[Rfam]
RNA sequence: AUCGCUUCUCGGCCUUCUGGCUAAGAUCAAGUGUAGUACCUGUUCUCGUCAGCUUAAUAUCUGACGCGUCGUCUAUUAUGGGACAGUAUAUUAUUUGAAUUUUUAGAGCCGGGAACUGGACUAGGAGCUUGCUCCAUCCACUCCACACAUCGCCCUGGUAUUGCAGUGCUUCCAGGAGCGGUGCCCACCCC
Numbered sequence: 001a002u003c004g005c006u007u008c009u010c011g012g013c014c015u016u017c018u019g020g021c022u023a024a025g026a027u028c029a030a031g032u033g034u035a036g037u038a039c040c041u042g043u044u045c046u047c048g049u050c051a052g053c054u055u056a057a058u059a060u061c062u063g064a065c066g067c068g069u070c071g072u073c074u075a076u077u078a079u080g081g082g083a084c085a086g087u088a089u090a091u092u093a094u095u096u097g098a099a100u101u102u103u104u105a106g107a108g109c110c111g112g113g114a115a116c117u118g119g120a121c122u123a124g125g126a127g128c129u130u131g132c133u134c135c136a137u138c139c140a141c142u143c144c145a146c147a148c149a150u151c152g153c154c155c156u157g158g159u160a161u162u163g164c165a166g167u168g169c170u171u172c173c174a175g176g177a178g179c180g181g182u183g184c185c186c187a188c189c190c191c
Stems, first nucleotide, its partner, number of pairs: 007026003011022004047066006068084003072080001074078001112144003118138002124135004148183005154176005
A member of the RNA family "U2 spliceosomal RNA" from Suricata suricatta, 191 nucleotides long.
It scores 158 bits against the family's covariance model.
NCBI's taxonomy places the organism under Eukaryota, Bilateria, Chordata, Euteleostomi, Suricata.
Its family is annotated with mRNA branch site recognition, U2 snRNP and pre-mRNA branch point binding in the Gene Ontology.
The base pairs follow the family's consensus structure, which is taken from published work.
From the family's description: U2 is a small nuclear RNA (snRNA) component of the spliceosome (involved in pre-mRNA splicing). Complementary binding between U2 snRNA (in an area lying towards the 5' end but 3' to hairpin I) and the branchpoint sequence (BPS) of the intron results the bulging out of an unpaired adenosine, on the BPS, which initiates a nucleophilic attack at the intronic 5' splice site, thus starting the first of two transesterification reactions that mediate splicing.